[Rfam]
RNA sequence: GGUGCCAGAGGGAGGGAUCCCAGUCCAGCCUUAGGAAAAGAAACCUUCCACGGGAGUCUUAGAGAUUGGCGGCAGUCCUAAUGACCCG
Numbered sequence: 001g002g003u004g005c006c007a008g009a010g011g012g013a014g015g016g017a018u019c020c021c022a023g024u025c026c027a028g029c030c031u032u033a034g035g036a037a038a039a040g041a042a043a044c045c046u047u048c049c050a051c052g053g054g055a056g057u058c059u060u061a062g063a064g065a066u067u068g069g070c071g072g073c074a075g076u077c078c079u080a081a082u083g084a085c086c087c088g
Base pairs, nucleotide, nucleotide: 002087004085006083007082010079011078012077013076016073018071020069021068022067023066024065025064029062038060039059040058041057044054045053046052